[Rfam]
RNA sequence: CCUAAGGCCAGCUCAGCGAGGACGGAAACCUCGCGUAGAGCAAAAGGGCAAAUGCUGGCUUGAUCCCGGACGCUCAGUACGCGUAGGGACUGCGAAAGCAUCGGCCUCUCGAUCCUCUCGUCCGCUGAAGAGUUUUCAGCGAGAGGUGUCAGAA
Dot-bracket structure: ((....((((((((.((((((.......))))))...))((......))....))))))....((((..((((.......)))).)))).(((....)))..))..........((((((....((((.......)))))))))).........

Shown here is a 154-nucleotide part of an RNA from Aphis glycines, a member of the family "Eukaryotic large subunit ribosomal RNA". Taxonomically the source falls in Aphis (Eukaryota, Bilateria, Insecta, Aphidini). It scores 2526 bits against the family's covariance model.